[Rfam]
RNA sequence: CAGUCCCAGUUCACAUUCAUUGCUGUCGGUGGGUUUCAAAGGUUUGACUCGCCGGACAAUGAAUGAGAACUGUGGCUUU
Dot-bracket structure: .((((.((.....(((((((((...((((((.(((..........))).)))))).))))))))).....)).)).)).
A member of the RNA family "mir-181 microRNA precursor family" from Chanos chanos, 79 nucleotides long. The base pairs follow the family's consensus structure, which was predicted with PFOLD. Lineage of the source: Eukaryota > Eumetazoa > Bilateria > Vertebrata > Chanos. Gene Ontology terms of the family: miRNA-mediated post-transcriptional gene silencing and RISC complex. A search with the family's covariance model found it, with a score of 48 bits. The literature on the family includes a 2001 paper in Cell by Ambros, "microRNAs: tiny regulators with great potential".